[Rfam]
RNA sequence: AUAGACAAGUAGAAGCACCCGCUUCUCACCUGAUCGACGCAAGAAGCAGUUGGCAGGUUACUAUAUUUCUGACACAUACAGAUGAGUAUGUUCUUUUAGAAAUGUCGUGUGGGUGCAACUAUUGUGCCGACACUUUUUUUAUUGU
Numbered sequence: 001a002u003a004g005a006c007a008a009g010u011a012g013a014a015g016c017a018c019c020c021g022c023u024u025c026u027c028a029c030c031u032g033a034u035c036g037a038c039g040c041a042a043g044a045a046g047c048a049g050u051u052g053g054c055a056g057g058u059u060a061c062u063a064u065a066u067u068u069c070u071g072a073c074a075c076a077u078a079c080a081g082a083u084g085a086g087u088a089u090g091u092u093c094u095u096u097u098a099g100a101a102a103u104g105u106c107g108u109g110u111g112g113g114u115g116c117a118a119c120u121a122u123u124g125u126g127c128c129g130a131c132a133c134u135u136u137u138u139u140u141a142u143u144g145u
Stems, first nucleotide, its partner, number of pairs: 011026006028058003036051003039047002108132003112128006
This 145-nucleotide RNA from Filobacillus milosensis belongs to the Rfam family "Ribosomal protein L20 leader". Rfam describes the family as follows. This family is a putative r-protein leader autoregulatory structure found in B. subtilis and other low-GC Gram-positive bacteria. By type it is a cis-regulatory leader. The base pairs follow the family's consensus structure, which was predicted with CMfinder. A reference for the family is Zengel and Lindahl (1994), "Diverse mechanisms for regulating ribosomal protein synthesis in Escherichia coli", Prog Nucleic Acid Res Mol Biol.